[Rfam]
Record summary: The family of this 75-nucleotide sequence from Sapientia aquatica is "Burkholderia RNA 7 (anti-hemB)". About the family: This RNA motif was identified by computational search in b-proteobacteria Burkholderia. Co-purified with Hfq, expression confirmed by Northern blot. A search with the family's covariance model found it, with a score of 52 bits. The source organism's lineage runs through Bacteria, Pseudomonadati, Betaproteobacteria, Burkholderiales and Sapientia. By type it is a small RNA. The literature on the family includes a 2012 paper in BMC Genomics by Khoo et al., "Computational discovery and RT-PCR validation of novel Burkholderia conserved and Burkholderia pseudomallei unique sRNAs".
RNA sequence: CCCCUGCUUCACUUCCCUGAGCGGGCACCUCUAAGGUGUUACAACCCAGUGCUUCAUCGCACUGGGCUUUUUUUU
Numbered sequence: 001c002c003c004c005u006g007c008u009u010c011a012c013u014u015c016c017c018u019g020a021g022c023g024g025g026c027a028c029c030u031c032u033a034a035g036g037u038g039u040u041a042c043a044a045c046c047c048a049g050u051g052c053u054u055c056a057u058c059g060c061a062c063u064g065g066g067c068u069u070u071u072u073u074u075u
Stems, first nucleotide, its partner, number of pairs: 003025006027037004045066007